[Rfam]
Record summary:
The family of this 75-nucleotide sequence from Salmo salar is "mir-205 microRNA precursor family". Rfam 15.1 lists 1,154 matches to the family in 646 species. The family's consensus secondary structure was predicted with RNAalifold. Gene Ontology terms of the family: RISC complex and miRNA-mediated post-transcriptional gene silencing.
RNA sequence: GCAUUCUAUCCUUCAUUCCACCGGAGUCUGUGCCUUUAUCCAAACAGAUUUCAGUGAAGUGAAGUGUAAGAGACA
Numbered sequence: 001g002c003a004u005u006c007u008a009u010c011c012u013u014c015a016u017u018c019c020a021c022c023g024g025a026g027u028c029u030g031u032g033c034c035u036u037u038a039u040c041c042a043a044a045c046a047g048a049u050u051u052c053a054g055u056g057a058a059g060u061g062a063a064g065u066g067u068a069a070g071a072g073a074c075a
Stems, first nucleotide, its partner, number of pairs: 011064006019056003023052004028047003